[Rfam]
RNA sequence: GUACAAGCGUUAAAGCGCGAAAAGGCUGGUGGUUAUUUAACCACCAGCCU
Numbered sequence: 001g002u003a004c005a006a007g008c009g010u011u012a013a014a015g016c017g018c019g020a021a022a023a024g025g026c027u028g029g030u031g032g033u034u035a036u037u038u039a040a041c042c043a044c045c046a047g048c049c050u
Stems, first nucleotide, its partner, number of pairs: 007016002024049010

Description: Shown here is a 50-nucleotide RNA sequence from Idiomarina sp. MD25a, a member of the family "Pseudomonas sRNA P26". The source organism's lineage runs through Bacteria, Pseudomonadota, Gammaproteobacteria, Idiomarinaceae and Idiomarina. For this family Rfam cites "Identification of 17 Pseudomonas aeruginosa sRNAs and prediction of sRNA-encoding genes in 10 diverse pathogens using the bioinformatic tool sRNAPredict2" (Livny et al., Nucleic Acids Res, 2006). From the family's description: This small RNA (sRNA) was computationally identified in the genome of the opportunistic pathogen Pseudomonas aeruginosa and its expression verified by northern blot analysis.